[Rfam]
RNA: small nucleolar RNA snoR137
RNA sequence: GUUGCUUCUUACUGGUGAACGCUCUCUGAUAAAACGGUGAGGGAUGUUCAUGUUUCCGAAGCAUAGAUUAAAUAAAUUUAUGCCAGUUUUAAACAGUGCUGUGCUUUUUAUCUUUACUAGCACUGUGCUACCUGUCUCCUGGUAUAUUC
Numbered sequence: 001g002u003u004g005c006u007u008c009u010u011a012c013u014g015g016u017g018a019a020c021g022c023u024c025u026c027u028g029a030u031a032a033a034a035c036g037g038u039g040a041g042g043g044a045u046g047u048u049c050a051u052g053u054u055u056c057c058g059a060a061g062c063a064u065a066g067a068u069u070a071a072a073u074a075a076a077u078u079u080a081u082g083c084c085a086g087u088u089u090u091a092a093a094c095a096g097u098g099c100u101g102u103g104c105u106u107u108u109u110a111u112c113u114u115u116a117c118u119a120g121c122a123c124u125g126u127g128c129u130a131c132c133u134g135u136c137u138c139c140u141g142g143u144a145u146a147u148u149c
Stems, first nucleotide, its partner, number of pairs: 003063006016050005022043004082143005095129003099125001101123003